[Rfam]
RNA sequence: GAUGUUUAAAGGCAAACUUAUUGAAAAAUAAGGACGCAAAGCCGCGAAUCUAAGGUCUGAUUGACAUUCUCUACCUUUGGCAUGGAAGUAAUGACGAUUAGUCUUGCUGCCGAA
Numbered sequence: 001g002a003u004g005u006u007u008a009a010a011g012g013c014a015a016a017c018u019u020a021u022u023g024a025a026a027a028a029u030a031a032g033g034a035c036g037c038a039a040a041g042c043c044g045c046g047a048a049u050c051u052a053a054g055g056u057c058u059g060a061u062u063g064a065c066a067u068u069c070u071c072u073a074c075c076u077u078u079g080g081c082a083u084g085g086a087a088g089u090a091a092u093g094a095c096g097a098u099u100a101g102u103c104u105u106g107c108u109g110c111c112g113a114a
Stems, first nucleotide, its partner, number of pairs: 012037002017032006040108003046103002048098003
c-di-GMP-I riboswitch aptamer: a 114-nucleotide RNA sequence from Bacillus mesophilum. NCBI's taxonomy places the organism under Bacteria, Bacillati, Bacillota, Bacillaceae, Bacillus. From the family's description: GEMM was predicted in a large-scale screen for bacterial structured RNA regulatory elements. Genes associated with GEMM are involved in a diverse array of functions, including chemotaxis regulation, signal transduction, secretion and chitin. The base pairs follow the family's consensus structure, which is taken from published work.